[Rfam]
RNA sequence: GCUUAAGUGUGAUCUCUAGACUAUAUACAAAGUUCCCGGUUAGUUAAAUUAGUCUAGCUGCUGCUUAAGUGUCGGGUGGGUUAUUUAGCCUUACCUCCCAGGAUGUCCCAGAGCAGCCCUCUAAAAUCCAGGGAACCCGGGUGCUGCAUAGUAGAUUAAGCUGUCGCUGUGCAAAAGAAAUUGGCUUGCUGAUU
Numbered sequence: 001g002c003u004u005a006a007g008u009g010u011g012a013u014c015u016c017u018a019g020a021c022u023a024u025a026u027a028c029a030a031a032g033u034u035c036c037c038g039g040u041u042a043g044u045u046a047a048a049u050u051a052g053u054c055u056a057g058c059u060g061c062u063g064c065u066u067a068a069g070u071g072u073c074g075g076g077u078g079g080g081u082u083a084u085u086u087a088g089c090c091u092u093a094c095c096u097c098c099c100a101g102g103a104u105g106u107c108c109c110a111g112a113g114c115a116g117c118c119c120u121c122u123a124a125a126a127u128c129c130a131g132g133g134a135a136c137c138c139g140g141g142u143g144c145u146g147c148a149u150a151g152u153a154g155a156u157u158a159a160g161c162u163g164u165c166g167c168u169g170u171g172c173a174a175a176a177g178a179a180a181u182u183g184g185c186u187u188g189c190u191g192a193u194u
Stems, first nucleotide, its partner, number of pairs: 001070009016057008026047001035141002039138001074108004079090004096134004101129004110122004145173005151168001154165003157188006
The family of this 194-nucleotide sequence from Beihai picorna-like virus 75 is "Cripavirus internal ribosome entry site (IRES)".
The literature on the family includes a 2001 paper in RNA by Kanamori and Nakashima, "A tertiary structure model of the internal ribosome entry site (IRES) for methionine-independent initiation of translation".
Pairs were carried over by alignment from the consensus structure, which is taken from published work.
A search with the family's covariance model found it, with a score of 128 bits.
Gene Ontology term of the family: ribosome binding.
This family represents a Cripavirus internal ribosome entry site (IRES) which is required for the production of capsid proteins through IRES-mediated translation.